[Rfam]
RNA sequence: AUUUAUGAUGACUUACAUGGAAUCUUGUUUGGUUGAUGACUUGCUGUUGAGACUCAGAAAUCUCAUUUUC
Dot-bracket structure: ......................(((((..((((.........)))).)))))..................
Small nucleolar RNA SNORD30: a 70-nucleotide RNA sequence from Rousettus aegyptiacus. Its family is annotated with nucleolus and RNA processing in the Gene Ontology. NCBI's taxonomy places the organism under Eukaryota, Yinpterochiroptera, Pteropodoidea, Pteropodidae, Rousettus. The base pairs follow the family's consensus structure. It is annotated as a C/D-box small nucleolar RNA.